Shown here is a 77-nucleotide RNA sequence from Croceicoccus marinus, a member of the family "Makes More Granules Regulator RNA (mmgR)". The literature on the family includes a 2005 paper in Genome Biol by Corbino et al., "Evidence for a second class of S-adenosylmethionine riboswitches and other regulatory RNA motifs in alpha-proteobacteria". Its Rfam clan is "suhB sRNA clan".
RNA sequence: CGGAGGGGCCUUAUAGGCAUCCUCUCCCAAAACUUUCAGGCCCGGUCGGCAACGACCGGGCCUUUUUUUUCGCCCUG
Numbered sequence: 001c002g003g004a005g006g007g008g009c010c011u012u013a014u015a016g017g018c019a020u021c022c023u024c025u026c027c028c029a030a031a032a033c034u035u036u037c038a039g040g041c042c043c044g045g046u047c048g049g050c051a052a053c054g055a056c057c058g059g060g061c062c063u064u065u066u067u068u069u070u071c072g073c074c075c076u077g
Stems, first nucleotide, its partner, number of pairs: 008018004039062009